[Rfam]
RNA sequence: ACUAAGAGGAGUCCAGCAACCCCUUAAAAAAACGGGGCGUAACCGAAAAGCCACACGAGUAGGAAAUAA
Number, nucleotide and partner (000 for none) at each position: 001a000002c000003u000004a000005a000006g023007a000008g021009g020010a000011g000012u000013c000014c000015a000016g000017c000018a000019a000020c009021c008022c000023c006024u000025u000026a000027a000028a000029a000030a000031a000032a000033c000034g000035g000036g052037g051038c050039g000040u000041a000042a000043c063044c062045g000046a000047a000048a000049a000050g038051c037052c036053a000054c000055a000056c000057g000058a000059g000060u000061a000062g044063g043064a000065a000066a000067u000068a000069a000
RNA: DUF805 RNA